[Rfam]
RNA sequence: CGAUGAAGGCGAACAGCUUCCAGCACGAAUCCAGCGCCGCCCGGCAGGCCACCGGCAUGACCUCGCGCGCGCGUCGACCGGAACCCCACAUCCUCGCUGGGUAACCGGAGCUUCGUGCUGUCUG
Numbered sequence: 001c002g003a004u005g006a007a008g009g010c011g012a013a014c015a016g017c018u019u020c021c022a023g024c025a026c027g028a029a030u031c032c033a034g035c036g037c038c039g040c041c042c043g044g045c046a047g048g049c050c051a052c053c054g055g056c057a058u059g060a061c062c063u064c065g066c067g068c069g070c071g072c073g074u075c076g077a078c079c080g081g082a083a084c085c086c087c088a089c090a091u092c093c094u095c096g097c098u099g100g101g102u103a104a105c106c107g108g109a110g111c112u113u114c115g116u117g118c119u120g121u122c123u124g
Base pairs, nucleotide, nucleotide: 032120033119034118035117036116039111040110041108042107043079044078047075048074049073055070056069058067059066080106081105085101086100087099088098089096
Shown here is a 124-nucleotide RNA from Stenotrophomonas daejeonensis, a member of the family "Xanthomonadaceae sRNA Xoo5".
A reference for the family is Liang et al. (2011), "Identification and functional characterization of small non-coding RNAs in Xanthomonas oryzae pathovar oryzae", BMC Genomics.